Shown here is a 58-nucleotide sequence from Canis lupus, a member of the family "mir-7180 microRNA precursor family". Taxonomically the source falls in Canis lupus (Eukaryota, Eumetazoa, Vertebrata, Teleostomi).
[Rfam]
RNA sequence: AGUGUACUUCCUGGGGCCUCUGGGCAUAUAAUUCCUGUGGCCUCUGGGUGUGUACCCU
Numbered sequence: 001a002g003u004g005u006a007c008u009u010c011c012u013g014g015g016g017c018c019u020c021u022g023g024g025c026a027u028a029u030a031a032u033u034c035c036u037g038u039g040g041c042c043u044c045u046g047g048g049u050g051u052g053u054a055c056c057c058u
Stems, first nucleotide, its partner, number of pairs: 002055006009048003013044006020037001022035003
Dot-bracket structure: .((((((.(((.((((((.(.(((........))).).)))))).))).))))))...